[Rfam]
Rhizobiales sRNA Atu_C8: a 122-nucleotide RNA sequence from Mesorhizobium sp. Root554. On this family, see Wilms et al., RNA Biol 2012: "Deep sequencing uncovers numerous small RNAs on all four replicons of the plant pathogen Agrobacterium tumefaciens". Pairs were carried over by alignment from the consensus structure, which was predicted with CMfinder.

RNA sequence: CAUGAAAACGGCAUCCAUUCUCGUAGUAGGAACGCGCGUGGGCAAGGCGGUGUAACCGCCGGGCGAAAUCCCCCCAUGCGCGACACACAGGCUCCCUCCGGGGGCCUUUUUUAUUGCCUGAA
Numbered sequence: 001c002a003u004g005a006a007a008a009c010g011g012c013a014u015c016c017a018u019u020c021u022c023g024u025a026g027u028a029g030g031a032a033c034g035c036g037c038g039u040g041g042g043c044a045a046g047g048c049g050g051u052g053u054a055a056c057c058g059c060c061g062g063g064c065g066a067a068a069u070c071c072c073c074c075c076a077u078g079c080g081c082g083a084c085a086c087a088c089a090g091g092c093u094c095c096c097u098c099c100g101g102g103g104g105c106c107u108u109u110u111u112u113a114u115u116g117c118c119u120g121a122a
Stems, first nucleotide, its partner, number of pairs: 009026001029118002032115001033082010046060005063070001087108001089107007